[Rfam]
RNA: DUF3800-VII RNA
RNA sequence: GAGCAGGGAGCGCGGAUAACCUUUGGUCGUCUUUUACGGACGGCAGCCGAUUUUCGGUGGGAUCCAACGGCCCGGACCUGCACCUUUC
Numbered sequence: 001g002a003g004c005a006g007g008g009a010g011c012g013c014g015g016a017u018a019a020c021c022u023u024u025g026g027u028c029g030u031c032u033u034u035u036a037c038g039g040a041c042g043g044c045a046g047c048c049g050a051u052u053u054u055c056g057g058u059g060g061g062a063u064c065c066a067a068c069g070g071c072c073c074g075g076a077c078c079u080g081c082a083c084c085u086u087u088c
Base pairs, nucleotide, nucleotide: 001083003081004080005079006078007077011075013074014073015072020070021069023067024066025065026044027043028042029041030040031039032038047057048056049055